[Rfam]
A member of the RNA family "Bacterial small subunit ribosomal RNA", 342 nucleotides of a longer RNA. The family's consensus secondary structure is taken from published work.

RNA sequence: GGUCUAAAGGGUACGUAGGCUGUAUCAUAAGACUGAAAAGUAUCGAAUUAAAUGAAUAAGAAUUUUUCAGUAACUAUGAAACUAGAGUAUAAUGGAGGGAAGAGGAACUCUGGGAGUAAGGAUGGAAUCUAUUGAUCCUCAGAAGACCGCUUAAGGCGAAGGCUUCUUUCUAACUAAAUACUGACGCUGAGGUACGAAAGUAUGGGGAGCAAAACAGAUUAGAGACCUGUGUAGUCCAUACCGUAAACGAUGAGUGCUUUAGAUUGGUAAUAUCAGUCUAAAAAUGAAGAUGAAAGCACUCCACCUGGGGAGUACUGCCGCAAGGUUGAAACCCAAAAGUAU
Number, nucleotide and partner (000 for none) at each position: 001g305002g304003u303004c000005u000006a000007a000008a000009g302010g000011g195012u194013a193014c192015g000016u189017a000018g188019g187020c186021u000022g082023u081024a000025u079026c078027a077028u076029a000030a075031g074032a071033c070034u069035g068036a067037a066038a065039a064040g063041u000042a000043u000044c000045g000046a000047a000048u060049u059050a000051a057052a000053u000054g000055a000056a000057u051058a000059a049060g048061a000062a000063u040064u039065u038066u037067u036068c035069a034070g033071u032072a000073a000074c031075u030076a028077u027078g026079a025080a000081a023082c022083u000084a000085g000086a182087g181088u180089a000090u177091a000092a175093u000094g000095g000096a000097g171098g170099g169100a168101a167102g166103a165104g148105g147106a000107a000108c000109u143110c142111u141112g140113g139114g138115a000116g000117u000118a000119a130120g129121g128122a000123u000124g000125g000126a000127a000128u121129c120130u119131a000132u000133u000134g000135a000136u000137c000138c114139u113140c112141a111142g110143a109144a000145g000146a000147c105148c104149g000150c000151u000152u000153a164154a000155g000156g163157c162158g000159a000160a000161g000162g157163c156164u153165u103166c102167u101168u100169u099170c098171u097172a000173a000174c000175u092176a000177a090178a000179u000180a088181c087182u086183g000184a000185c000186g020187c019188u018189g016190a000191g000192g014193u013194a012195c011196g000197a000198a000199a000200g241201u240202a239203u238204g237205g236206g000207g000208a000209g235210c234211a000212a000213a000214a230215c229216a228217g227218a000219u000220u000221a000222g000223a000224g000225a000226c000227c217228u216229g215230u214231g000232u000233a000234g210235u209236c205237c204238a203239u202240a201241c200242c000243g000244u000245a000246a000247a000248c000249g000250a000251u000252g301253a300254g299255u298256g297257c296258u000259u000260u280261a279262g278263a277264u276265u275266g274267g273268u272269a000270a000271u000272a268273u267274c266275a265276g264277u263278c262279u261280a260281a000282a000283a000284a291285u290286g000287a000288a000289g000290a285291u284292g000293a000294a000295a000296g257297c256298a255299c254300u253301c252302c009303a003304c002305c001306u000307g334308g333309g332310g000311a000312g000313u000314a000315c000316u000317g326318c325319c324320g000321c000322a000323a000324g319325g318326u317327u000328g000329a000330a000331a000332c309333c308334c307335a000336a000337a000338a000339g000340u000341a000342u000